[Rfam]
A member of the RNA family "MIR528 microRNA precursor family" from Sorghum bicolor, 84 nucleotides long. NCBI's taxonomy places the organism under Eukaryota, Spermatophyta, Liliopsida, Andropogonodae, Sorghum. The sequence is in the family's curated seed alignment.
RNA sequence: UGGAAGGGGCAUGCAGAGGAGCACGAGGCUUGGCUGGAAGCCGACCUACGCCUCGCUGGCUCUCCUGUGCCUGCCUCUUCCAUU
Numbered sequence: 001u002g003g004a005a006g007g008g009g010c011a012u013g014c015a016g017a018g019g020a021g022c023a024c025g026a027g028g029c030u031u032g033g034c035u036g037g038a039a040g041c042c043g044a045c046c047u048a049c050g051c052c053u054c055g056c057u058g059g060c061u062c063u064c065c066u067g068u069g070c071c072u073g074c075c076u077c078u079u080c081c082a083u084u
Stems, first nucleotide, its partner, number of pairs: 001082011013070003017066005023061001